Record summary: This 103-nucleotide RNA sequence from Lineolata rhizophorae belongs to the Rfam family "Small nucleolar RNA Z13/snr52". Gene Ontology terms of the family: nucleolus and RNA processing. Pairs were carried over by alignment from the consensus structure, which was predicted with PFOLD. It scores 63 bits against the family's covariance model.
RNA sequence: AGAUCUAGUGAUGAAGCACUACGGAUGUAAAACAUUUUGUACCGAAUUUGCGCAAACAAUUUAUGCUGUGGAUUUCUCCGUUGCCUUCCUUCUGAUCACGGUC
Numbered sequence: 001a002g003a004u005c006u007a008g009u010g011a012u013g014a015a016g017c018a019c020u021a022c023g024g025a026u027g028u029a030a031a032a033c034a035u036u037u038u039g040u041a042c043c044g045a046a047u048u049u050g051c052g053c054a055a056a057c058a059a060u061u062u063a064u065g066c067u068g069u070g071g072a073u074u075u076c077u078c079c080g081u082u083g084c085c086u087u088c089c090u091u092c093u094g095a096u097c098a099c100g101g102u103c
Stems, first nucleotide, its partner, number of pairs: 002103002022080004